[Rfam]
RNA sequence: GGGCUGGCUUCUAGCUCAGCGGUUCCUUCGACAGCAUGUUAUUACCCAACUGGUCUGGUGCCUUCCACCAGCCGGAUGGAUCGAGACCCGCGGGCGCUCUCCAGUCCUUUU
Numbered sequence: 001g002g003g004c005u006g007g008c009u010u011c012u013a014g015c016u017c018a019g020c021g022g023u024u025c026c027u028u029c030g031a032c033a034g035c036a037u038g039u040u041a042u043u044a045c046c047c048a049a050c051u052g053g054u055c056u057g058g059u060g061c062c063u064u065c066c067a068c069c070a071g072c073c074g075g076a077u078g079g080a081u082c083g084a085g086a087c088c089c090g091c092g093g094g095c096g097c098u099c100u101c102c103a104g105u106c107c108u109u110u111u
Stems, first nucleotide, its partner, number of pairs: 002106006014095004019091004027085005

The record is a 111-nucleotide sequence from Fukomys damarensis, which matches "Vault RNA" in Rfam. A reference for the family is Stadler et al. (2009), "Evolution of Vault RNAs", Mol Biol Evol. This family of RNAs are found as part of the enigmatic vault ribonucleoprotein complex. The complex consists of a major vault protein (MVP), two minor vault proteins (VPARP and TEP1), and several small untranslated RNA molecules.